The family of this 516-nucleotide sequence from Helcococcus ovis is "Bacterial RNase P class A". The match comes from Rfam's covariance-model search (261 bits). The organism belongs to Helcococcus, within Bacteria. By type it is a ribozyme.
[Rfam]
RNA sequence: CGAGUAUGUUAGAUAAUCGCUGGUAAUUUUUAUUACGAGAGGAAAGUCCGUGCACCACACAGCAGAAUGCCAGAUAACGUCUGGUGGAGGUGACUCUAAGGAUAGUGCAACAGAGAUAUACCGCUGAAUUUCUAACUUAUGUGUUUAACAAUUGAAAUAAUUUAGGUGUUGAGCCGUCGAAUCUUUCCAAUCGAAGCUCCAUUUUCGGUCGAUUCUCUUGGAGAUUCUUGGCAUGACACCUACUUUAUACUUCAACUAUCUCAUGGUAUUUUAUACCAUGAGAUAGUUGAGCGCAUAAGUUAGGGGUUCAGUAAGGGUGGAAAGGCGAGGUAAGAGCUCACCAGCAUAUGGGUAACUAUGUGGCUAUGUAAACCCCAUUCGGUGCAAGAUCAGAAUAGGAUACAAACCUAGUAGCUGGCUAGGUCCGGUAGGUAGAUUGCUUGAAUGUAUAGGUGACUAUACAUCUAGAUAGAUGAUUAUCAAAUACAGAACACGGCUUAUAAAUAUGCUCGCAUA
Numbered sequence: 001c002g003a004g005u006a007u008g009u010u011a012g013a014u015a016a017u018c019g020c021u022g023g024u025a026a027u028u029u030u031u032a033u034u035a036c037g038a039g040a041g042g043a044a045a046g047u048c049c050g051u052g053c054a055c056c057a058c059a060c061a062g063c064a065g066a067a068u069g070c071c072a073g074a075u076a077a078c079g080u081c082u083g084g085u086g087g088a089g090g091u092g093a094c095u096c097u098a099a100g101g102a103u104a105g106u107g108c109a110a111c112a113g114a115g116a117u118a119u120a121c122c123g124c125u126g127a128a129u130u131u132c133u134a135a136c137u138u139a140u141g142u143g144u145u146u147a148a149c150a151a152u153u154g155a156a157a158u159a160a161u162u163u164a165g166g167u168g169u170u171g172a173g174c175c176g177u178c179g180a181a182u183c184u185u186u187c188c189a190a191u192c193g194a195a196g197c198u199c200c201a202u203u204u205u206c207g208g209u210c211g212a213u214u215c216u217c218u219u220g221g222a223g224a225u226u227c228u229u230g231g232c233a234u235g236a237c238a239c240c241u242a243c244u245u246u247a248u249a250c251u252u253c254a255a256c257u258a259u260c261u262c263a264u265g266g267u268a269u270u271u272u273a274u275a276c277c278a279u280g281a282g283a284u285a286g287u288u289g290a291g292c293g294c295a296u297a298a299g300u301u302a303g304g305g306g307u308u309c310a311g312u313a314a315g316g317g318u319g320g321a322a323a324g325g326c327g328a329g330g331u332a333a334g335a336g337c338u339c340a341c342c343a344g345c346a347u348a349u350g351g352g353u354a355a356c357u358a359u360g361u362g363g364c365u366a367u368g369u370a371a372a373c374c375c376c377a378u379u380c381g382g383u384g385c386a387a388g389a390u391c392a393g394a395a396u397a398g399g400a401u402a403c404a405a406a407c408c409u410a411g412u413a414g415c416u417g418g419c420u421a422g423g424u425c426c427g428g429u430a431g432g433u434a435g436a437u438u439g440c441u442u443g444a445a446u447g448u449a450u451a452g453g454u455g456a457c458u459a460u461a462c463a464u465c466u467a468g469a470u471a472g473a474u475g476a477u478u479a480u481c482a483a484a485u486a487c488a489g490a491a492c493a494c495g496g497c498u499u500a501u502a503a504a505u506a507u508g509c510u511c512g513c514a515u516a
Stems, first nucleotide, its partner, number of pairs: 001512010011501001012481007020039002023036005044499003048496005053384004060417004065380005070084005085099001086097004100375002105373002107369003121316002123312027324342002327339003344364001345362007388438004395429002398426003408422005445464008